[Rfam]
Description:
Shown here is a 341-nucleotide sequence from Manacus vitellinus, a member of the family "7SK RNA".

RNA sequence: GCAUGUGAGGGUGAUCUGUCUGUGACUUCUGGCACCCCACUGAUUGCAAGGGUUGGUUUGACUGAUUUGGUAGCUGGGCAGGUUUCUUUCUCCUUUCUUUCUCCUUUCUCCCUCAGUGUUCCCUUGUGUCCCUCCCAAAGCUGUGUGCUCAGCUGAUGAGGCCAACCUUCCUCAUAGAGAUGGUAUCAUUCGUUGGUCAAGGGUAUACUGUAGCUGCACUCCCCUUCCAGAAACUCCAAACAAGUCCAAGGUCCAUUUGUUUCGGAAUGCAAGGUAGUCAAGCUUCCAAGACUGAAGACACAUCCAAGUGAGGAGCUGCAUGAAGCAGUCUGCCACUGCUU
Dot-bracket structure: (.(..((((((.((.........((..((((.(.(.(((..(((((...............).)))))))..)...).))))..))...................))..))))))....)).......((.((((..(.((.....)))..).((....((........)).))..)))..)).............................(((...((.((.(.(......((....(((((...........)))))...))...).).)).))...)))......................(((.(.((.(((((.....)))))...)).)..)))

About this RNA:
7SK was discovered as an abundant small nuclear RNA in the mid-70s but a possible function has only recently been suggested. Two independent studies have found that 7SK RNA binds the CDK9/cyclin T complex (known as elongation factor P-TEFb). P-TEFb activates transcription by phosphorylating the C-terminal domain of RNA polymerase II. This process is negatively regulated by the 7SK RNP. The secondary structure of 7SK RNA shown here was proposed by Wasserman and Steitz on the basis of chemical modification and enzymatic cleavage experiments. This family contains a number of annotated pseudogenes and 7SK derived repeats. The family is grouped with related families in Rfam's "7SK clan". Rfam classes the family as a non-coding RNA gene. For this family Rfam cites "Transcription: surprising role for an elusive small nuclear RNA" (Blencowe, Curr Biol, 2002).